A member of the RNA family "GA-cis RNA", 85 nucleotides long. It is one of the family's seed sequences. The base pairs follow the family's consensus structure, which is taken from published work.
RNA sequence: CGGAGGAAGCACCAAGUGUCGAAGACACAUUUAGAAUGGCGCUGACUAAAUGUUACCCAGUGCAAACGAGGUGGCAUUACACAUA
Numbered sequence: 001c002g003g004a005g006g007a008a009g010c011a012c013c014a015a016g017u018g019u020c021g022a023a024g025a026c027a028c029a030u031u032u033a034g035a036a037u038g039g040c041g042c043u044g045a046c047u048a049a050a051u052g053u054u055a056c057c058c059a060g061u062g063c064a065a066a067c068g069a070g071g072u073g074g075c076a077u078u079a080c081a082c083a084u085a
Base pairs, nucleotide, nucleotide: 008043009042010041012039013038016028017027018026019025052075053074054073056071057070060067061066
Dot-bracket structure: .......(((.((..((((.....)))).........)).)))........(((.((..((....))..)).)))..........